[Rfam]
RNA sequence: AUGCGAAGGUCCCAGCAGGGAGGUAAGAUCUCUGAAAUUGAGUCCUCCCUAACAAUUUAACAAACUUUCGCAGAUUAAUUUGCCGAAUCGUAGGAUGCCCAUAACUUUUCAAUUUGUGGAGCGUCUUGAACCCUCGGCUAUAUUCGC
Numbered sequence: 001a002u003g004c005g006a007a008g009g010u011c012c013c014a015g016c017a018g019g020g021a022g023g024u025a026a027g028a029u030c031u032c033u034g035a036a037a038u039u040g041a042g043u044c045c046u047c048c049c050u051a052a053c054a055a056u057u058u059a060a061c062a063a064a065c066u067u068u069c070g071c072a073g074a075u076u077a078a079u080u081u082g083c084c085g086a087a088u089c090g091u092a093g094g095a096u097g098c099c100c101a102u103a104a105c106u107u108u109u110c111a112a113u114u115u116g117u118g119g120a121g122c123g124u125c126u127u128g129a130a131c132c133c134u135c136g137g138c139u140a141u142a143u144u145c146g147c
Base pairs, nucleotide, nucleotide: 003071004070005069006068007067008066009065011020012019013018027047030042031041032040034038082138083137084136085135086134094125095124097122098121099119100118101117102116103115104114